[Rfam]
RNA sequence: UCACCUCUCAUUUUUGUGAUUUUUGCAAUUUAAAUUAAACAAUUAAUUGCAUAGUCACAAAAGUGAUGGGUGC
Numbered sequence: 001u002c003a004c005c006u007c008u009c010a011u012u013u014u015u016g017u018g019a020u021u022u023u024u025g026c027a028a029u030u031u032a033a034a035u036u037a038a039a040c041a042a043u044u045a046a047u048u049g050c051a052u053a054g055u056c057a058c059a060a061a062a063g064u065g066a067u068g069g070g071u072g073c
Stems, first nucleotide, its partner, number of pairs: 002072005008066013024051007
Overview:
mir-153 microRNA precursor family: a 73-nucleotide RNA from Daphnia pulex. The literature on the family includes a 2005 paper in Genes Dev by Chen et al., "The developmental miRNA profiles of zebrafish as determined by small RNA cloning". The family's consensus secondary structure was predicted with RNAalifold.